[Rfam]
RNA: Betaproteobacteria-1 RNA
Organism: Duganella sp. 1224
RNA sequence: CGCUGUGGUCGACGGGCGAGUAGACAGUGGGGCCACAGGGAAACGGGAACACCACGAGGAAAGCGCAUGAGAUAGUCCCCGAACUGGCGAAGGUAGUGGUUCGUUGCGCGCAAGACUGCCGGGC
Numbered sequence: 001c002g003c004u005g006u007g008g009u010c011g012a013c014g015g016g017c018g019a020g021u022a023g024a025c026a027g028u029g030g031g032g033c034c035a036c037a038g039g040g041a042a043a044c045g046g047g048a049a050c051a052c053c054a055c056g057a058g059g060a061a062a063g064c065g066c067a068u069g070a071g072a073u074a075g076u077c078c079c080c081g082a083a084c085u086g087g088c089g090a091a092g093g094u095a096g097u098g099g100u101u102c103g104u105u106g107c108g109c110g111c112a113a114g115a116c117u118g119c120c121g122g123g124c
Base pairs, nucleotide, nucleotide: 001040003038004037005036006035007034008033009032010031027055028054029053030052045079046078047077048076064108065107066106067105080103081102082101083100084099085098092120093119094118095117096116097115